[Rfam]
RNA sequence: AAUUUCAUAUAACGUUCACAUCGUAUAUGCUUAAUAAUAUGGAUUAAGCGUUUCUACCGGGAGGCCAUAAACUACCUGACUACGAAUGUGCAGUUGCUAUUAA
Number, nucleotide and partner (000 for none) at each position: 001a000002a000003u000004u000005u000006c000007a000008u000009a000010u000011a000012a000013c000014g000015u000016u000017c000018a089019c088020a087021u086022c084023g083024u082025a081026u000027a000028u000029g049030c048031u047032u046033a045034a044035u043036a000037a000038u000039a000040u000041g000042g000043a035044u034045u033046a032047a031048g030049c029050g000051u000052u000053u000054c000055u000056a000057c000058c078059g077060g076061g075062a000063g073064g072065c000066c000067a000068u000069a000070a000071a000072c064073u063074a000075c061076c060077u059078g058079a000080c000081u025082a024083c023084g022085a000086a021087u020088g019089u018090g000091c000092a000093g000094u000095u000096g000097c000098u000099a000100u000101u000102a000103a000